The family of this 148-nucleotide RNA from Heterocephalus glaber is "Small nucleolar RNA SNORA79". ACA65 (SNORA79) is a member of the H/ACA class of snoRNAs that guide the sites of modification of uridines to pseudouridines. This snoRNA was identified by computational screening and its expression in mouse experimentally verified by Northern blot and primer extension analysis. For this family Rfam cites "A computational screen for mammalian pseudouridylation guide H/ACA RNAs" (Schattner et al., RNA, 2006). Its family is annotated with nucleolus and RNA processing in the Gene Ontology.
[Rfam]
RNA sequence: UGAUGACUGUUCCUCUCACUGCUAGGAGCCUUAAGCAGUGGGAUUUUGGUCCAUCAGAUAUAAAAGAUGACUUGUCUUCACUCAGAGCACCAUGAGGACAGCUUGGCUGUCUACUAGUGCCUUCUGAUUUUUGCAGAGUGAAACAAUU
Numbered sequence: 001u002g003a004u005g006a007c008u009g010u011u012c013c014u015c016u017c018a019c020u021g022c023u024a025g026g027a028g029c030c031u032u033a034a035g036c037a038g039u040g041g042g043a044u045u046u047u048g049g050u051c052c053a054u055c056a057g058a059u060a061u062a063a064a065a066g067a068u069g070a071c072u073u074g075u076c077u078u079c080a081c082u083c084a085g086a087g088c089a090c091c092a093u094g095a096g097g098a099c100a101g102c103u104u105g106g107c108u109g110u111c112u113a114c115u116a117g118u119g120c121c122u123u124c125u126g127a128u129u130u131u132u133g134c135a136g137a138g139u140g141a142a143a144c145a146a147u148u
Stems, first nucleotide, its partner, number of pairs: 001056005008049001014043005020037004070139004082127005087120004096112005